[Rfam]
Nucleotides: 162
Stems, first nucleotide, its partner, number of pairs: 001162003005158001010067004016061003020057003024054006031047001032045005070125008080115004087108002089105007127153004
Number, partner (000 for none) and nucleotide at each position: 001162u002161g003160a004000u005158a006000c007000c008000a009000g010067u011066g012065u013064c014000a015000a016061a017060a018059g019000g020057u021056c022055a023000a024054a025053a026052a027051g028050c029049u030000g031047u032045u033044c034043g035042u036041g037000c038000u039000u040000g041036c042035a043034c044033g045032a046000u047031a048000a049029g050028g051027c052026u053025u054024u055022u056021g057020a058000a059018c060017u061016u062000g063000g064013g065012a066011c067010a068000c069000g070125c071124c072123a073122a074121a075120u076119a077118u078000g079000a080115a081114a082113a083112a084000g085000u086000a087108g088107c089105g090104a091103u092102u093101u094100a095099c096000g097000c098000a099095g100094u101093a102092a103091a104090u105089c106000a107088g108087c109000g110000g111000a112083u113082u114081u115080u116000g117000a118077a119076u120075a121074u122073u123072u124071g125070g126000a127153u128152g129151a130150u131000a132000c133000c134000u135000g136000a137000a138000c139000u140000u141000a142000c143000u144000a145000u146000a147000u148000g149000a150130a151129u152128c153127a154000c155000a156000c157000c158005u159000u160003u161002c162001a

This 162-nucleotide sequence from Blautia sp. OF03-15BH belongs to the Rfam family "Clostridiales-1 RNA". The match comes from Rfam's covariance-model search (80 bits).